[Rfam]
RNA sequence: GAGCAGUGAUGAAUUCUGCGCUCCUGUGAUGGUAGGGUCCAUCACCGUCAUCUGAUCCAUCAGAUGAAAACAAGCGCAUCUGAGCUC
Numbered sequence: 001g002a003g004c005a006g007u008g009a010u011g012a013a014u015u016c017u018g019c020g021c022u023c024c025u026g027u028g029a030u031g032g033u034a035g036g037g038u039c040c041a042u043c044a045c046c047g048u049c050a051u052c053u054g055a056u057c058c059a060u061c062a063g064a065u066g067a068a069a070a071c072a073a074g075c076g077c078a079u080c081u082g083a084g085c086u087c
Stems, first nucleotide, its partner, number of pairs: 001087004
Dot-bracket structure: ((((...............................................................................))))
The record is an 87-nucleotide RNA from Morella rubra, which matches "small nucleolar RNA snoR114" in Rfam.
Lineage of the source: Eukaryota > Viridiplantae > Embryophyta > Gunneridae > Morella.